[Rfam]
This 78-nucleotide RNA sequence from Cylicocyclus nassatus belongs to the Rfam family "SmY spliceosomal RNA".

RNA sequence: AUCUUGAAAAGAAAUUGUUGAGGGCCUUCAACAAGACCCCAUACGAAUUUUUGAAAACCCUUGCGAAUGUAAGGGUUG
Number, nucleotide and partner (000 for none) at each position: 001a000002u000003c000004u000005u000006g000007a000008a000009a000010a000011g000012a000013a000014a000015u000016u000017g000018u000019u000020g000021a000022g039023g038024g037025c000026c035027u034028u033029c000030a000031a000032c000033a028034a027035g026036a000037c024038c023039c022040c000041a000042u000043a000044c000045g000046a000047a000048u000049u000050u000051u000052u000053g000054a000055a000056a077057a076058c075059c074060c073061u072062u071063g070064c069065g000066a000067a000068u000069g064070u063071a062072a061073g060074g059075g058076u057077u056078g000

The family's consensus secondary structure is taken from published work.